RNA: Glycine riboswitch aptamer
Organism: Lautropia mirabilis
RNA sequence: CGCAGUGGGAGAGACCGCUGCCGACCGGAACGGGAAGGCAUGUUCACCCCGUCGCCUGUGUAAACGACAGGCUCUCUGGAGGUGCGCCUUGCAGGUCGCCCUGGUCCCUUCCCUUUCCGUCGGUACGGCGCCGAAGGGGCAGCUUCCCCGCAAACUCUCAGGCAAACGGACCGCCGCGA
Numbered sequence: 001c002g003c004a005g006u007g008g009g010a011g012a013g014a015c016c017g018c019u020g021c022c023g024a025c026c027g028g029a030a031c032g033g034g035a036a037g038g039c040a041u042g043u044u045c046a047c048c049c050c051g052u053c054g055c056c057u058g059u060g061u062a063a064a065c066g067a068c069a070g071g072c073u074c075u076c077u078g079g080a081g082g083u084g085c086g087c088c089u090u091g092c093a094g095g096u097c098g099c100c101c102u103g104g105u106c107c108c109u110u111c112c113c114u115u116u117c118c119g120u121c122g123g124u125a126c127g128g129c130g131c132c133g134a135a136g137g138g139g140c141a142g143c144u145u146c147c148c149c150g151c152a153a154a155c156u157c158u159c160a161g162g163c164a165a166a167c168g169g170a171c172c173g174c175c176g177c178g179a
Stems, first nucleotide, its partner, number of pairs: 001178003005174004015128003130163003133159002137157003143150001